The family of this 133-nucleotide sequence from Streptomyces sp. CdTB01 is "Streptomyces-metH RNA". It is annotated as a small RNA. The base pairs follow the family's consensus structure, which is taken from published work. A search with the family's covariance model found it, with a score of 84 bits. Lineage of the source: Bacteria > Bacillati > Kitasatosporales > Streptomycetaceae > Streptomyces.

RNA sequence: CCGGUCCGCCUCGUGGACGCCCCGAACGCGCAGCGGCCCACCCGGUUACUCUGGCCAGGUGCGCCCACCGCGGAGAGUUCCACGGAACGCGCAAAGCCGACAGCCGUCGCACCAUAAGGGAGCCCCUUUCAUG
Numbered sequence: 001c002c003g004g005u006c007c008g009c010c011u012c013g014u015g016g017a018c019g020c021c022c023c024g025a026a027c028g029c030g031c032a033g034c035g036g037c038c039c040a041c042c043c044g045g046u047u048a049c050u051c052u053g054g055c056c057a058g059g060u061g062c063g064c065c066c067a068c069c070g071c072g073g074a075g076a077g078u079u080c081c082a083c084g085g086a087a088c089g090c091g092c093a094a095a096g097c098c099g100a101c102a103g104c105c106g107u108c109g110c111a112c113c114a115u116a117a118g119g120g121a122g123c124c125c126c127u128u129u130c131a132u133g
Stems, first nucleotide, its partner, number of pairs: 060093004068085003096110002099108003